[Rfam]
RNA: Small nucleolar RNA R64/Z200 family
RNA sequence: CUUCUGCUAUGAUGAAUUAUGAAACAAUUCACAUGUCAGACUUCAGAGAUCUGUAUAAAGAUCUAUGAGAAGACUAAUUCAUGAAUUCUGAGCAGUUU
Numbered sequence: 001c002u003u004c005u006g007c008u009a010u011g012a013u014g015a016a017u018u019a020u021g022a023a024a025c026a027a028u029u030c031a032c033a034u035g036u037c038a039g040a041c042u043u044c045a046g047a048g049a050u051c052u053g054u055a056u057a058a059a060g061a062u063c064u065a066u067g068a069g070a071a072g073a074c075u076a077a078u079u080c081a082u083g084a085a086u087u088c089u090g091a092g093c094a095g096u097u098u
Stems, first nucleotide, its partner, number of pairs: 004095004048063004